RNA: mir-959 microRNA precursor family
Organism: Drosophila pseudoobscura
RNA sequence: UUUGGUUCUAUGUUCUUAGUACUUGGGUUGAUAAAGACCACUCGUAGUGUGAGAAGCCUUUGUCAUCGCGGGUAUUAUGCAACAUAGCUCAAAA
Numbered sequence: 001u002u003u004g005g006u007u008c009u010a011u012g013u014u015c016u017u018a019g020u021a022c023u024u025g026g027g028u029u030g031a032u033a034a035a036g037a038c039c040a041c042u043c044g045u046a047g048u049g050u051g052a053g054a055a056g057c058c059u060u061u062g063u064c065a066u067c068g069c070g071g072g073u074a075u076u077a078u079g080c081a082a083c084a085u086a087g088c089u090c091a092a093a094a
Base pairs, nucleotide, nucleotide: 001094002093003092005090008087009086010085011084012083013082014081015079017077018076019075020074021073022072023071024070027067029065030064031063032062033061034060035059036058038056041053042052043051
Dot-bracket structure: (((.(..((((((((.((((((((..(.((((((((.(..(((.......)))..).)))))))).)..)))))))).).)))))))..).)))